[Rfam]
RNA: terC RNA
Organism: Sphingomonas sp. OV641
RNA sequence: GAUGCGGACCGGGCCCCUCUGGCGCUCGUCUCAGGACGAACGUGAUGUCGGACCGCAUCG
Numbered sequence: 001g002a003u004g005c006g007g008a009c010c011g012g013g014c015c016c017c018u019c020u021g022g023c024g025c026u027c028g029u030c031u032c033a034g035g036a037c038g039a040a041c042g043u044g045a046u047g048u049c050g051g052a053c054c055g056c057a058u059c060g
Stems, first nucleotide, its partner, number of pairs: 006054002009051004022043003026039004